[Rfam]
RNA sequence: GUGACGGUGUAUUCCCAGUAGUCGUCCGACUCCAGGACCGCCUCGUAGGUGAAGUAGUCGCCGUCGGCGAGGGUGUCCAGCACGGUGCGGUCGCCGUACUUGCCCGCGCCGAUCUUGUUCACCUUGCCGUGCGCGAUGAGCACCAUCUUGUCGGCGUCGCCGCCCUCGGUGACGAUGUUCUCGCCGGGCUCGUACUCGCGCUGCUCGAACUUGUCGGCCAGCGCGUUGAGGAUCUCCUCGUCCUCCAGGUCCCGGAAGACCGGCAGUUCACCGAGCUCGGCCGGGAUGACCCGGACCUGGUUGCCGACGUUGGUGAAGGUGACCCGGCCGUCGCCGACGGUGUAGGACAGGCGCCGGUUGACCCGGUAGGUGCCACCCUUGACGUCCACCCACGGCAGGGUCUUGAGCAGCCAGCGGGGCGAGAUGCCCUGCAUCUGCGGCUCGGACUUGGUCGUCGACGCCAGGUUCCGCGCGGCCGCGGUACUCAGCGAGAGUUGCGGGUUCUCCUG
Numbered sequence: 001g002u003g004a005c006g007g008u009g010u011a012u013u014c015c016c017a018g019u020a021g022u023c024g025u026c027c028g029a030c031u032c033c034a035g036g037a038c039c040g041c042c043u044c045g046u047a048g049g050u051g052a053a054g055u056a057g058u059c060g061c062c063g064u065c066g067g068c069g070a071g072g073g074u075g076u077c078c079a080g081c082a083c084g085g086u087g088c089g090g091u092c093g094c095c096g097u098a099c100u101u102g103c104c105c106g107c108g109c110c111g112a113u114c115u116u117g118u119u120c121a122c123c124u125u126g127c128c129g130u131g132c133g134c135g136a137u138g139a140g141c142a143c144c145a146u147c148u149u150g151u152c153g154g155c156g157u158c159g160c161c162g163c164c165c166u167c168g169g170u171g172a173c174g175a176u177g178u179u180c181u182c183g184c185c186g187g188g189c190u191c192g193u194a195c196u197c198g199c200g201c202u203g204c205u206c207g208a209a210c211u212u213g214u215c216g217g218c219c220a221g222c223g224c225g226u227u228g229a230g231g232a233u234c235u236c237c238u239c240g241u242c243c244u245c246c247a248g249g250u251c252c253c254g255g256a257a258g259a260c261c262g263g264c265a266g267u268u269c270a271c272c273g274a275g276c277u278c279g280g281c282c283g284g285g286a287u288g289a290c291c292c293g294g295a296c297c298u299g300g301u302u303g304c305c306g307a308c309g310u311u312g313g314u315g316a317a318g319g320u321g322a323c324c325c326g327g328c329c330g331u332c333g334c335c336g337a338c339g340g341u342g343u344a345g346g347a348c349a350g351g352c353g354c355c356g357g358u359u360g361a362c363c364c365g366g367u368a369g370g371u372g373c374c375a376c377c378c379u380u381g382a383c384g385u386c387c388a389c390c391c392a393c394g395g396c397a398g399g400g401u402c403u404u405g406a407g408c409a410g411c412c413a414g415c416g417g418g419g420c421g422a423g424a425u426g427c428c429c430u431g432c433a434u435c436u437g438c439g440g441c442u443c444g445g446a447c448u449u450g451g452u453c454g455u456c457g458a459c460g461c462c463a464g465g466u467u468c469c470g471c472g473c474g475g476c477c478g479c480g481g482u483a484c485u486c487a488g489c490g491a492g493a494g495u496u497g498c499g500g501g502u503u504c505u506c507c508u509g
Stems, first nucleotide, its partner, number of pairs: 006390004011385002015381001018328002021325001025322002028320001030318001031316002038313003042309001048305004052298001054233002058229003062225003065111004075103001077102001079100002082097005117222003122217002129210002131206001133204003138199001140197001149192002154189002157187003161183001162178002166174001235295003240290003244286002252280003256277001262269001329342004351379001353377001356374002361371003391431002394428004401421001403418002407415001437476002440473001443470004447465006478507001480503003484499001486497003
RNA: Saccharopolyspora sRNA 350
Organism: Pseudonocardiaceae bacterium YIM PH 21723